[Rfam]
RNA sequence: GGGUCUCUCUUGCUGGACCAGAUUAGAGCCUGGGAGCUCUCUGGCUAGCAGGGAACCCAC
Numbered sequence: 001g002g003g004u005c006u007c008u009c010u011u012g013c014u015g016g017a018c019c020a021g022a023u024u025a026g027a028g029c030c031u032g033g034g035a036g037c038u039c040u041c042u043g044g045c046u047a048g049c050a051g052g053g054a055a056c057c058c059a060c
Stems, first nucleotide, its partner, number of pairs: 001058004006054004011050006018044005026039004

Shown here is a 60-nucleotide RNA from Lentivirus humimdef1, a member of the family "Trans-activation response element (TAR)".
Gene Ontology terms of the family: miRNA-mediated post-transcriptional gene silencing and RISC complex.
It scores 80 bits against the family's covariance model.
It is annotated as a microRNA precursor.
A reference for the family is Kulinski et al. (2003), "The apical loop of the HIV-1 TAR RNA hairpin is stabilized by a cross-loop base pair", J Biol Chem.
From the family's description: This family represents the HIV trans-activation response (TAR) element which is known to be required for the trans-activation of the viral promoter and for virus replication. The TAR hairpin acts as a binding site for the Tat protein and this interaction stimulates the activity of the long terminal repeat promoter. Further experiments have shown that TAR acts as a miRNA that protects against apoptosis.